[Rfam]
Nucleotides: 106
Stems, first nucleotide, its partner, number of pairs: 002105007013043005021032003026077004044069004049065002052060003073098001078095006
Number, partner (000 for none) and nucleotide at each position: 001000u002105u003104c004103u005102u006101a007100u008099c009000c010000a011000g012000a013043g014042a015041a016040g017039u018000c019000g020000a021032g022031g023030g024000a025000c026077c027076u028075g029074a030023c031022c032021c033000a034000a035000u036000g037000a038000c039017g040016c041015u042014u043013c044069a045068g046067c047066a048000a049065c050064c051000a052060g053059c054058a055000a056000a057000c058054u059053g060052c061000a062000u063000u064050g065049g066047u067046g068045c069044u070000c071000c072000u073098u074029u075028c076027a077026g078095a079094g080093a081092a082091u083090g084000a085000a086000u087000a088000a089000u090083c091082a092081u093080u094079c095078u096000g097000a098073a099008g100007a101006u102005g103004a104003g105002a106000u

The family of this 106-nucleotide RNA from Savagea serpentis is "SAM riboswitch aptamer (S box leader)". Lineage of the source: Bacteria > Bacillati > Bacilli > Caryophanales > Savagea. It scores 76 bits against the family's covariance model.